Small nucleolar RNA R21: an 80-nucleotide RNA from Capsicum annuum. The family's consensus secondary structure was predicted with PFOLD. NCBI's taxonomy places the organism under Eukaryota, eudicotyledons, lamiids, Solanoideae, Capsicum. For this family Rfam cites "Identification of 66 box C/D snoRNAs in Arabidopsis thaliana: extensive gene duplications generated multiple isoforms predicting new ribosomal RNA 2'-O-methylation sites" (Barneche et al., J Mol Biol, 2001).
RNA sequence: AAUCCCUGUGAUGAACUAGCUGAAUAAUUUUAAAGUAGUGGCCUGAUGACCAUUGAUGAGAAGCUUUACUCUGAGGGAUU
Numbered sequence: 001a002a003u004c005c006c007u008g009u010g011a012u013g014a015a016c017u018a019g020c021u022g023a024a025u026a027a028u029u030u031u032a033a034a035g036u037a038g039u040g041g042c043c044u045g046a047u048g049a050c051c052a053u054u055g056a057u058g059a060g061a062a063g064c065u066u067u068a069c070u071c072u073g074a075g076g077g078a079u080u
Stems, first nucleotide, its partner, number of pairs: 001080006